mir-5928 microRNA precursor family: a 77-nucleotide RNA sequence from Haemonchus placei.
RNA sequence: GGAACACAAACUUGAAGUAGAGUAGAUUGGUAGGAUCAGCUGACGACACCCAACUACUCUACUUCACGUUUGUGCCC
Numbered sequence: 001g002g003a004a005c006a007c008a009a010a011c012u013u014g015a016a017g018u019a020g021a022g023u024a025g026a027u028u029g030g031u032a033g034g035a036u037c038a039g040c041u042g043a044c045g046a047c048a049c050c051c052a053a054c055u056a057c058u059c060u061a062c063u064u065c066a067c068g069u070u071u072g073u074g075c076c077c
Stems, first nucleotide, its partner, number of pairs: 001076002005074007013066013027052001029050003036043002
Lineage of the source: Eukaryota > Chromadorea > Rhabditida > Rhabditina > Haemonchus.
Its family is annotated with RISC complex and miRNA-mediated post-transcriptional gene silencing in the Gene Ontology.
It scores 62 bits against the family's covariance model.